[Rfam]
RNA sequence: UUGGCCCAUGGGGAAAGAAGCCCCGCAAUUUCCCCAUGGCUCAA
Numbered sequence: 001u002u003g004g005c006c007c008a009u010g011g012g013g014a015a016a017g018a019a020g021c022c023c024c025g026c027a028a029u030u031u032c033c034c035c036a037u038g039g040c041u042c043a044a
Stems, first nucleotide, its partner, number of pairs: 002043002004040001007038009017029001020026002
Rfam assigns this 44-nucleotide RNA sequence from Lentivirus simimdef to the family "ribosomal frameshift site". Rfam links the family to the GO term viral translational frameshifting. The organism belongs to Lentivirus simimdef, within Viruses.